[Rfam]
RNA sequence: UCUUUCUGCCGUGUGACUGGCGUUUCCUCCCUAAACUUGGGCCGCUCCCUUGCGGGGGCGGCCCUUUCUUUUGUUUAA
Numbered sequence: 001u002c003u004u005u006c007u008g009c010c011g012u013g014u015g016a017c018u019g020g021c022g023u024u025u026c027c028u029c030c031c032u033a034a035a036c037u038u039g040g041g042c043c044g045c046u047c048c049c050u051u052g053c054g055g056g057g058g059c060g061g062c063c064c065u066u067u068c069u070u071u072u073g074u075u076u077a078a
Stems, first nucleotide, its partner, number of pairs: 008021003040063009

Background: The family of this 78-nucleotide RNA sequence from Sediminicoccus sp. KRV36 is "Makes More Granules Regulator RNA (mmgR)". Pairs were carried over by alignment from the consensus structure. The literature on the family includes a 2016 paper in Mol Phylogenet Evol by Lagares et al., "Phylogenetic distribution and evolutionary pattern of an alpha-proteobacterial small RNA gene that controls polyhydroxybutyrate accumulation in Sinorhizobium meliloti". It is annotated as a small RNA.